[Rfam]
RNA sequence: GGCACUUGUACUCGUUGCGGUGCAACCAUGGUAAAGGG
Numbered sequence: 001g002g003c004a005c006u007u008g009u010a011c012u013c014g015u016u017g018c019g020g021u022g023c024a025a026c027c028a029u030g031g032u033a034a035a036g037g038g
Base pairs, nucleotide, nucleotide: 005031006030014026015025016024017023018022

Overview
Rfam assigns this 38-nucleotide RNA sequence from Anaeromicrobium sediminis to the family "Selenocysteine insertion sequence 4". Lineage of the source: Bacteria > Bacillati > Clostridia > Thermotaleaceae > Anaeromicrobium. The base pairs follow the family's consensus structure, which was predicted with PFOLD. Rfam links the family to the GO term selenocysteine incorporation.